[Rfam]
RNA sequence: CUGGUUCCGGUUCACGUCCCGCCGUCCGAGGCGGCGACGACCCGGCGACC
Numbered sequence: 001c002u003g004g005u006u007c008c009g010g011u012u013c014a015c016g017u018c019c020c021g022c023c024g025u026c027c028g029a030g031g032c033g034g035c036g037a038c039g040a041c042c043c044g045g046c047g048a049c050c
Stems, first nucleotide, its partner, number of pairs: 003050003007045004015039004019034004
RNA: L31-Actinobacteria ribosomal protein leader